The record is a 30-nucleotide RNA sequence from Haloarcula marismortui, which matches "CRISPR RNA direct repeat element" in Rfam. The organism belongs to Haloarcula marismortui, within Archaea. The base pairs follow the family's consensus structure, which was predicted with WAR. It scores 36 bits against the family's covariance model. Gene Ontology term of the family: defense response.
[Rfam]
RNA sequence: GUUUCAGACGGGCCCUUUGGCGGUUGAAGC
Numbered sequence: 001g002u003u004u005c006a007g008a009c010g011g012g013c014c015c016u017u018u019g020g021c022g023g024u025u026g027a028a029g030c
Stems, first nucleotide, its partner, number of pairs: 011025004